A member of the RNA family "SAH (S-adenosyl-L-homocysteine) riboswitch aptamer" from Polaromonas sp., 94 nucleotides long. Rfam links the family to the GO terms regulation of gene expression and S-adenosylhomocysteine metabolic process. Pairs were carried over by alignment from the consensus structure, which is taken from published work. The match comes from Rfam's covariance-model search (56 bits).

RNA sequence: AAAUUCGAGGAGCGUUGCAGCGGCCAACAGGCCGCCAGGCUCGAAUGACAGAUGUCCGCUUGCCGGGCGACUGCCGCAACGACGCUCACCGUCG
Numbered sequence: 001a002a003a004u005u006c007g008a009g010g011a012g013c014g015u016u017g018c019a020g021c022g023g024c025c026a027a028c029a030g031g032c033c034g035c036c037a038g039g040c041u042c043g044a045a046u047g048a049c050a051g052a053u054g055u056c057c058g059c060u061u062g063c064c065g066g067g068c069g070a071c072u073g074c075c076g077c078a079a080c081g082a083c084g085c086u087c088a089c090c091g092u093c094g
Base pairs, nucleotide, nucleotide: 003046004045005044006043007042008041021034022033023032024031025030